[Rfam]
Rfam assigns this 102-nucleotide sequence from Sinomicrobium soli to the family "SAM riboswitch aptamer (S box leader)". The organism belongs to Sinomicrobium, within Bacteria. Pairs were carried over by alignment from the consensus structure, which is taken from published work.
RNA sequence: ACGUUAUCAAGAAAGGCAGAGGGAAUAGACCCGUGGAAGCCUUAGCAACCCUCCCUCACGGAGAAGGUGCUACAUUCUACCCCGGAAGGGGAAAGAUAACAC
Numbered sequence: 001a002c003g004u005u006a007u008c009a010a011g012a013a014a015g016g017c018a019g020a021g022g023g024a025a026u027a028g029a030c031c032c033g034u035g036g037a038a039g040c041c042u043u044a045g046c047a048a049c050c051c052u053c054c055c056u057c058a059c060g061g062a063g064a065a066g067g068u069g070c071u072a073c074a075u076u077c078u079a080c081c082c083c084g085g086a087a088g089g090g091g092a093a094a095g096a097u098a099a100c101a102c
Stems, first nucleotide, its partner, number of pairs: 003100006013043005021032003026079004044071004049067002051063004075094001080091004